[Rfam]
RNA sequence: GUGGCAGCUUGGUUGUCAUAUGUGUGAUGUCACUUUCUAUAAUCUCCCAGAAUGACAUGACAUGUAUGGCUACUAAACUGCUAC
Numbered sequence: 001g002u003g004g005c006a007g008c009u010u011g012g013u014u015g016u017c018a019u020a021u022g023u024g025u026g027a028u029g030u031c032a033c034u035u036u037c038u039a040u041a042a043u044c045u046c047c048c049a050g051a052a053u054g055a056c057a058u059g060a061c062a063u064g065u066a067u068g069g070c071u072a073c074u075a076a077a078c079u080g081c082u083a084c
Stems, first nucleotide, its partner, number of pairs: 002083006015070008024061002027058001029056001031054002037050002
The family of this 84-nucleotide RNA sequence from Cricetulus griseus is "mir-489 microRNA precursor family". NCBI's taxonomy places the organism under Eukaryota, Chordata, Gnathostomata, Glires, Cricetulus. A search with the family's covariance model found it, with a score of 83 bits.